[Rfam]
RNA sequence: GGUGGCGUAGUUCAGUUGGUUAGAAUGCCGGCCUGUCACGCCGGAGGUCGCGAGUUCGAGUCUCGUCGUCACCG
Numbered sequence: 001g002g003u004g005g006c007g008u009a010g011u012u013c014a015g016u017u018g019g020u021u022a023g024a025a026u027g028c029c030g031g032c033c034u035g036u037c038a039c040g041c042c043g044g045a046g047g048u049c050g051c052g053a054g055u056u057c058g059a060g061u062c063u064c065g066u067c068g069u070c071a072c073c074g
Stems, first nucleotide, its partner, number of pairs: 001073007010026004028044005050066005